[Rfam]
RNA sequence: GGAAAUUUUAUCGAUAUAGAACAUUCAUAUCGAUAAAUAAUUUGAACCAUUU
Numbered sequence: 001g002g003a004a005a006u007u008u009u010a011u012c013g014a015u016a017u018a019g020a021a022c023a024u025u026c027a028u029a030u031c032g033a034u035a036a037a038u039a040a041u042u043u044g045a046a047c048c049a050u051u052u
Stems, first nucleotide, its partner, number of pairs: 011033007
The record is a 52-nucleotide RNA from Tetracentron sinense, which matches "Plastid-atpF group II-D1 intron" in Rfam. The match comes from Rfam's covariance-model search (62 bits). The family's consensus secondary structure was predicted with LocARNA. Rfam links the family to the GO term Group II intron splicing.